This 91-nucleotide RNA from Medicago truncatula belongs to the Rfam family "MIR2617 microRNA precursor family".
RNA sequence: ACGUAGUGUAGCAUGUCCGUAUGUGGAAUUACUCUGAUGUUGAAUUAUUUGUUAUUUAAUUACUUUUGGGUAACGGGGUGUUACAAUUUCG
Numbered sequence: 001a002c003g004u005a006g007u008g009u010a011g012c013a014u015g016u017c018c019g020u021a022u023g024u025g026g027a028a029u030u031a032c033u034c035u036g037a038u039g040u041u042g043a044a045u046u047a048u049u050u051g052u053u054a055u056u057u058a059a060u061u062a063c064u065u066u067u068g069g070g071u072a073a074c075g076g077g078g079u080g081u082u083a084c085a086a087u088u089u090c091g
Stems, first nucleotide, its partner, number of pairs: 002091002005088002007085008016077005

Rfam 15.1 lists 1,174 matches to the family in 2 species. Lineage of the source: Eukaryota > Viridiplantae > Streptophytina > Trifolieae > Medicago.